About this RNA
A member of the RNA family "Streptomyces RNA 4115" from Streptomyces qinzhouensis, 111 nucleotides long. The family's RNA type in Rfam is small RNA. It scores 91 bits against the family's covariance model. Lineage of the source: Bacteria > Bacillati > Actinomycetes > Kitasatosporales > Streptomyces. Rfam's curators write: Identified by deep sequencing of transcriptome at the end of exponential growth phase.

[Rfam]
RNA sequence: GCGUGGGUCGGCCCGCUGCGUAGUGGAACCAGCGGGCUGGGGGACACCGCCGCCUUCAAUCCCCGCGGGCGGCGGACGGUCCGGGAGGCGUGUGGCGCCUCCCGGACUGUC
Numbered sequence: 001g002c003g004u005g006g007g008u009c010g011g012c013c014c015g016c017u018g019c020g021u022a023g024u025g026g027a028a029c030c031a032g033c034g035g036g037c038u039g040g041g042g043g044a045c046a047c048c049g050c051c052g053c054c055u056u057c058a059a060u061c062c063c064c065g066c067g068g069g070c071g072g073c074g075g076a077c078g079g080u081c082c083g084g085g086a087g088g089c090g091u092g093u094g095g096c097g098c099c100u101c102c103c104g105g106a107c108u109g110u111c
Base pairs, nucleotide, nucleotide: 001110002109007077008076009039010038011037012036013035014034015033016032017031018030040045047075048074049073050072051071052070053069054068055067057065078108079107080106081105082104083103084102085101086100087099088098089097090096